Rfam assigns this 74-nucleotide RNA from Longibaculum muris to the family "c-di-GMP-I riboswitch aptamer". From the family's description: GEMM was predicted in a large-scale screen for bacterial structured RNA regulatory elements. NCBI's taxonomy places the organism under Bacteria, Bacillota, Erysipelotrichia, Coprobacillaceae, Longibaculum.
RNA sequence: AGAAUAUAUAGGCAAAACUAUCGAAAGGUAGUGACGCAAAGCUAUAGGGCCUGAAAUGGCAGCCAGUUGCAUCA
Numbered sequence: 001a002g003a004a005u006a007u008a009u010a011g012g013c014a015a016a017a018c019u020a021u022c023g024a025a026a027g028g029u030a031g032u033g034a035c036g037c038a039a040a041g042c043u044a045u046a047g048g049g050c051c052u053g054a055a056a057u058g059g060c061a062g063c064c065a066g067u068u069g070c071a072u073c074a
Stems, first nucleotide, its partner, number of pairs: 012037002017032006040068004047064002049060003
Dot-bracket structure: ...........((...((((((....))))))...))..((((...(((((......)))..))))))......